RNA sequence: CGAGUGAUUCAUGGCUAAGGAACUAGGCAAAAUAGCCUCGUAACUUCGGGAGAAGAGGCGCCUCUGGCAACAGAGGCCGCAGUGAAAAGGCCCAGGCGACUGUUUAUCAAAAACACAGGACUCUGCGAAAUCGAAAGAUGAUGUAUAGGGUCUGACACCUGCCCGGUGCCGGAAGGUUAAGAGGAGAUGUUAUCUUCGGAGAAGCAUUGAAUUGAAGCCCCGGUAAACGGCGGCCGUAACUAUAACGGUCCUAAGGUAGCGAAAUUCCUUGUCGGGUAAGUUCCGACCUGCACGAAUGGUGCAACGAUCUGGGCACUGUCUCAGCCAUGAGCUCG
Numbered sequence: 001c002g003a004g005u006g007a008u009u010c011a012u013g014g015c016u017a018a019g020g021a022a023c024u025a026g027g028c029a030a031a032a033u034a035g036c037c038u039c040g041u042a043a044c045u046u047c048g049g050g051a052g053a054a055g056a057g058g059c060g061c062c063u064c065u066g067g068c069a070a071c072a073g074a075g076g077c078c079g080c081a082g083u084g085a086a087a088a089g090g091c092c093c094a095g096g097c098g099a100c101u102g103u104u105u106a107u108c109a110a111a112a113a114c115a116c117a118g119g120a121c122u123c124u125g126c127g128a129a130a131u132c133g134a135a136a137g138a139u140g141a142u143g144u145a146u147a148g149g150g151u152c153u154g155a156c157a158c159c160u161g162c163c164c165g166g167u168g169c170c171g172g173a174a175g176g177u178u179a180a181g182a183g184g185a186g187a188u189g190u191u192a193u194c195u196u197c198g199g200a201g202a203a204g205c206a207u208u209g210a211a212u213u214g215a216a217g218c219c220c221c222g223g224u225a226a227a228c229g230g231c232g233g234c235c236g237u238a239a240c241u242a243u244a245a246c247g248g249u250c251c252u253a254a255g256g257u258a259g260c261g262a263a264a265u266u267c268c269u270u271g272u273c274g275g276g277u278a279a280g281u282u283c284c285g286a287c288c289u290g291c292a293c294g295a296a297u298g299g300u301g302c303a304a305c306g307a308u309c310u311g312g313g314c315a316c317u318g319u320c321u322c323a324g325c326c327a328u329g330a331g332c333u334c335g
Stems, first nucleotide, its partner, number of pairs: 001335004009330008018321003035059005044049001060077007078082001090314007097306002101115003118153008126143001130139003156301004161231003166228002168224005175219003181213002186208005193200002232250006251255001261288001271287006
Annotation:
Rfam assigns this 335-nucleotide part of an RNA from Croceimicrobium hydrocarbonivorans to the family "Bacterial large subunit ribosomal RNA". The match comes from Rfam's covariance-model search (2828 bits). The family's consensus secondary structure is taken from published work.